Source information
The family of this 103-nucleotide sequence from Pelosinus fermentans is "SAM riboswitch aptamer (S box leader)". Rfam links the family to the GO term regulation of gene expression. A search with the family's covariance model found it, with a score of 83 bits. Rfam describes the family as follows. The SAM riboswitch is found upstream of a number of genes which code for proteins involved in methionine or cysteine biosynthesis in Gram-positive bacteria. Pairs were carried over by alignment from the consensus structure, which is taken from published work.
RNA sequence: CUUUCAUCAAGAGCAGUUGAGGGAAUGGCCCAAUGAAGCUGCGGCAACCAUUCACUUGUGAAACGGUGCCAAAUCCACAGGAUUGAUUCCUGAUAGAUGAAGC
Numbered sequence: 001c002u003u004u005c006a007u008c009a010a011g012a013g014c015a016g017u018u019g020a021g022g023g024a025a026u027g028g029c030c031c032a033a034u035g036a037a038g039c040u041g042c043g044g045c046a047a048c049c050a051u052u053c054a055c056u057u058g059u060g061a062a063a064c065g066g067u068g069c070c071a072a073a074u075c076c077a078c079a080g081g082a083u084u085g086a087u088u089c090c091u092g093a094u095a096g097a098u099g100a101a102g103c
Stems, first nucleotide, its partner, number of pairs: 002102007013042005021031003026077003043070004048066002051062004074095001078092005